A member of the RNA family "Glycine riboswitch aptamer" from Streptomyces benahoarensis, 95 nucleotides long. Lineage of the source: Bacteria > Bacillati > Actinomycetes > Streptomycetaceae > Streptomyces.
[Rfam]
RNA sequence: UGAAUCCGCGCGGGAGAGUCCCCGGCCGCACGCCGGGGCGCCGAAGGAGCAAGUCCUCCCUUGAAUCUCUCAGGCCCCUAUACCGCGCGGGCGAG
Numbered sequence: 001u002g003a004a005u006c007c008g009c010g011c012g013g014g015a016g017a018g019u020c021c022c023c024g025g026c027c028g029c030a031c032g033c034c035g036g037g038g039c040g041c042c043g044a045a046g047g048a049g050c051a052a053g054u055c056c057u058c059c060c061u062u063g064a065a066u067c068u069c070u071c072a073g074g075c076c077c078c079u080a081u082a083c084c085g086c087g088c089g090g091g092c093g094a095g
Stems, first nucleotide, its partner, number of pairs: 006090008020038006040075003043071002047069003053062001